RAGATH-5 RNA: a 53-nucleotide RNA from Faecalibacterium prausnitzii. Its family is annotated with catalytic activity in the Gene Ontology. The family's RNA type in Rfam is ribozyme. NCBI's taxonomy places the organism under Bacteria, Clostridia, Eubacteriales, Faecalibacterium, Faecalibacterium prausnitzii. Pairs were carried over by alignment from the consensus structure, which is taken from published work. For this family Rfam cites "New classes of self-cleaving ribozymes revealed by comparative genomics analysis" (Weinberg et al., Nat Chem Biol, 2015).
RNA sequence: ACGGAUACUCUAGCCGGGUUGCACCGUUCAAAGCAGCCCAGCCCCAGCCGCAA
Numbered sequence: 001a002c003g004g005a006u007a008c009u010c011u012a013g014c015c016g017g018g019u020u021g022c023a024c025c026g027u028u029c030a031a032a033g034c035a036g037c038c039c040a041g042c043c044c045c046a047g048c049c050g051c052a053a
Stems, first nucleotide, its partner, number of pairs: 001027004013042001016039003020035003